[Rfam]
RNA: 6S / SsrS RNA
RNA sequence: UAAAUCCUGAGAUGUGCGCUUAGCUUAAAAUAUUCAACCUACAUUGAAUAUACGGGAUUUGCAAUAUCUAAAAGUAUGCUGGGCUCCAGUAAUUCACUUAUGUGGCAGGAGAAAGCAAAGAGUUAGUGCGCUUAACCCACCUGCGAGUAGCAGGUAUGAAUAUUUAAGUGACCGGCAUGUUGGGAAUAAU
Numbered sequence: 001u002a003a004a005u006c007c008u009g010a011g012a013u014g015u016g017c018g019c020u021u022a023g024c025u026u027a028a029a030a031u032a033u034u035c036a037a038c039c040u041a042c043a044u045u046g047a048a049u050a051u052a053c054g055g056g057a058u059u060u061g062c063a064a065u066a067u068c069u070a071a072a073a074g075u076a077u078g079c080u081g082g083g084c085u086c087c088a089g090u091a092a093u094u095c096a097c098u099u100a101u102g103u104g105g106c107a108g109g110a111g112a113a114a115g116c117a118a119a120g121a122g123u124u125a126g127u128g129c130g131c132u133u134a135a136c137c138c139a140c141c142u143g144c145g146a147g148u149a150g151c152a153g154g155u156a157u158g159a160a161u162a163u164u165u166a167a168g169u170g171a172c173c174g175g176c177a178u179g180u181u182g183g184g185a186a187u188a189a190u
Stems, first nucleotide, its partner, number of pairs: 003187001005185006012178004017174002030163007037155003054138003058134001061131002068126004078116002084111004